[Rfam]
RNA: MIR394 microRNA precursor family
RNA sequence: UAUAUAGAGUUCAUUGGCAUUCUGUCCACCUCCCUCCUCUCUCUCUCUCUCUCUCUCUCUGUCUCCUCUUUCUCUCUCCUGAUGCAUAUGUGGAGGAGGUGGAGGUGGGCACACUGCCAACUGAGCUUUGUAGG
Dot-bracket structure: ..........(..((((((...(((((((((((...................................................................)))))))))))...))))))...)..........
Numbered sequence: 001u002a003u004a005u006a007g008a009g010u011u012c013a014u015u016g017g018c019a020u021u022c023u024g025u026c027c028a029c030c031u032c033c034c035u036c037c038u039c040u041c042u043c044u045c046u047c048u049c050u051c052u053c054u055c056u057c058u059c060u061g062u063c064u065c066c067u068c069u070u071u072c073u074c075u076c077u078c079c080u081g082a083u084g085c086a087u088a089u090g091u092g093g094a095g096g097a098g099g100u101g102g103a104g105g106u107g108g109g110c111a112c113a114c115u116g117c118c119a120a121c122u123g124a125g126c127u128u129u130g131u132a133g134g
Stems, first nucleotide, its partner, number of pairs: 011124001014120006023111011